[Rfam]
RNA sequence: AAGUCUGUUUCUAAGGGCUGUGACUGUCUGUGGCCAUGGGAUCUCCAACUGCAUGCCAGAGCAAUCUGGAGGGGUGUGAGCAGCCCAGGUCAGCACGAUUCCUGCAGCUGCCAUUUGCUUUUCCUGUAAUA
Dot-bracket structure: ..........((...(((((((......)))))))..))............................((((((.........((.((((...........)))).....)).......)))))).......
Notes:
A member of the RNA family "Small nucleolar RNA SNORA44" from Prolemur simus, 131 nucleotides long. Rfam links the family to the GO terms RNA processing and nucleolus. Rfam describes the family as follows. ACA44 is a member of the H/ACA class of snoRNA that guide the sites of modification of uridines to pseudouridines. The family's consensus secondary structure was predicted with PFOLD. Its Rfam clan is "SNORA44 clan".